RNA sequence: GAAAAGAUCAGUGAGAAUCUGAUCCGCCGAAAGCCCAAGGUUUCCUGAGGAAGGCUCGUCCGCUCAGGGUAAGUCGGGACCUAAGGCGAGGCCGACAGGCGUAGUCGAAGGACAACAGGUUGAUAUUCCUGUACCACCAUAAUCCGUUAUGAGCAAUGGGGGGACGCAGGAGGGUAGUGACGCGGACUGAUGGAUGUCCGUCCAAGCAGCGAGGCUGGUGUAUAGGCAAAUCCGUACACCGUAAGGCUGGGCUGUGAUGGGGAGCGAAAAUUGUAGUAGCGAAGGUCAUGAUCUCACACUGCCAAGAAAAGCCUCUAGCCAGGAGAAGGUGCCCGUACCGCAAACCGACACAGGUAGGCGAGAAGAGAAUUCUAAGGCGCG
Number, nucleotide and partner (000 for none) at each position: 001g000002a000003a000004a000005a000006g024007a023008u022009c021010a020011g019012u000013g000014a000015g000016a000017a000018u000019c011020u010021g009022a008023u007024c006025c379026g378027c377028c376029g000030a000031a000032a000033g359034c358035c357036c000037a000038a000039g339040g338041u000042u000043u000044c068045c067046u066047g065048a064049g063050g000051a000052a000053g061054g060055c000056u000057c000058g000059u000060c054061c053062g000063c049064u048065c047066a046067g045068g044069g000070u000071a000072a000073g000074u000075c335076g334077g333078g332079a000080c111081c110082u000083a000084a000085g106086g105087c104088g000089a102090g000091g100092c099093c098094g000095a000096c000097a000098g093099g092100c091101g000102u089103a000104g087105u086106c085107g000108a000109a000110g081111g080112a000113c000114a000115a132116c131117a130118g129119g128120u000121u000122g000123a000124u000125a000126u000127u000128c119129c118130u117131g116132u115133a000134c000135c331136a330137c329138c328139a000140u326141a000142a000143u324144c323145c322146g000147u000148u000149a000150u000151g000152a000153g319154c318155a000156a000157u000158g315159g314160g313161g312162g000163g000164a000165c000166g302167c301168a300169g299170g000171a000172g295173g294174g293175u000176a000177g289178u288179g287180a286181c285182g201183c200184g199185g198186a197187c196188u000189g000190a000191u000192g000193g000194a000195u000196g187197u186198c185199c184200g183201u182202c260203c259204a000205a000206g255207c254208a253209g252210c000211g000212a000213g248214g247215c246216u000217g240218g239219u238220g237221u236222a235223u234224a000225g233226g232227c000228a000229a000230a000231u000232c226233c225234g223235u222236a221237c220238a219239c218240c217241g000242u000243a000244a000245g000246g215247c214248u213249g000250g000251g000252c209253u208254g207255u206256g000257a000258u000259g203260g202261g000262g000263a000264g280265c279266g000267a277268a000269a000270a000271u000272u000273g000274u000275a000276g000277u267278a000279g265280c264281g000282a000283a000284g000285g181286u180287c179288a178289u177290g000291a000292u000293c174294u173295c172296a000297c000298a000299c169300u168301g167302c166303c000304a000305a000306g000307a000308a000309a000310a000311g000312c161313c160314u159315c158316u000317a000318g154319c153320c000321a000322g145323g144324a143325g000326a140327a000328g138329g137330u136331g135332c078333c077334c076335g075336u000337a000338c040339c039340g000341c000342a000343a000344a000345c354346c353347g000348a000349c000350a000351c000352a000353g346354g345355u000356a000357g035358g034359c033360g000361a373362g372363a371364a370365g000366a000367g000368a000369a000370u364371u363372c362373u361374a000375a000376g028377g027378c026379g025380c000381g000
Source information
This 381-nucleotide part of an RNA from Paenibacillus durus belongs to the Rfam family "Bacterial large subunit ribosomal RNA". The match comes from Rfam's covariance-model search (2942 bits).